[Rfam]
RNA sequence: CAGGCAUAAUGAUGAGAGAUUUUCAUCUGAUAAUUUAUUCUAUGAACUAAUUACCUCCUACUCAUACUGG
Numbered sequence: 001c002a003g004g005c006a007u008a009a010u011g012a013u014g015a016g017a018g019a020u021u022u023u024c025a026u027c028u029g030a031u032a033a034u035u036u037a038u039u040c041u042a043u044g045a046a047c048u049a050a051u052u053a054c055c056u057c058c059u060a061c062u063c064a065u066a067c068u069g070g
Stems, first nucleotide, its partner, number of pairs: 006065002009062001028045001030041001
Small nucleolar RNA Z105: a 70-nucleotide RNA from Carpinus fangiana.
A search with the family's covariance model found it, with a score of 46 bits.
Rfam links the family to the GO terms nucleolus and RNA processing.
Taxonomically the source falls in Carpinus (Eukaryota, Euphyllophyta, Pentapetalae, Betulaceae).